[Rfam]
RNA: Small nucleolar RNA SNORD58
Organism: Cyprinodon variegatus
RNA sequence: CCGCGCUGAUGACCAUCUUAGGACACCUUUGGAUCAAUGAUGAAACCAAACUGUUAGUCUGAGCGGC
Numbered sequence: 001c002c003g004c005g006c007u008g009a010u011g012a013c014c015a016u017c018u019u020a021g022g023a024c025a026c027c028u029u030u031g032g033a034u035c036a037a038u039g040a041u042g043a044a045a046c047c048a049a050a051c052u053g054u055u056a057g058u059c060u061g062a063g064c065g066g067c
Stems, first nucleotide, its partner, number of pairs: 001066004